[Rfam]
Nucleotides: 096
Base pairs, nucleotide, nucleotide: 010087012085013084015082016081017080018079019078020077021076022075023074024073025072026071027070028069029068030067032065033064
Number, partner (000 for none) and nucleotide at each position: 001000c002000c003000g004000a005000u006000u007000g008000c009000c010087g011000a012085u013084g014000c015082a016081g017080c018079a019078u020077c021076a022075u023074c024073a025072a026071g027070a028069u029068u030067c031000u032065c033064a034000u035000a036000u037000g038000u039000a040000u041000c042000u043000c044000g045000c046000u047000c048000a049000a050000c051000a052000u053000g054000u055000g056000g057000a058000u059000a060000u061000c062000c063000a064033u065032g066000u067030g068029a069028a070027u071026c072025u073024u074023g075022a076021u077020g078019a079018u080017g081016c082015u083000a084013c085012a086000c087010c088000c089000g090000c091000a092000a093000a094000c095000a096000c